[Rfam]
RNA sequence: AAAUAUAAAAAGGGGAGCUUGCGUAUCAAGCAGGCUGAGAACAGGCUGAAUCGCCUGGACCCGUAGACCUGAUUUGGAUAAUGCCAACGUAGGGAGCGGUAUGAUGGAUUUAU
Numbered sequence: 001a002a003a004u005a006u007a008a009a010a011a012g013g014g015g016a017g018c019u020u021g022c023g024u025a026u027c028a029a030g031c032a033g034g035c036u037g038a039g040a041a042c043a044g045g046c047u048g049a050a051u052c053g054c055c056u057g058g059a060c061c062c063g064u065a066g067a068c069c070u071g072a073u074u075u076g077g078a079u080a081a082u083g084c085c086a087a088c089g090u091a092g093g094g095a096g097c098g099g100u101a102u103g104a105u106g107g108a109u110u111u112a113u
Stems, first nucleotide, its partner, number of pairs: 006101002012062003017035005042057005068093004074087004
RNA: TPP riboswitch aptamer (THI element)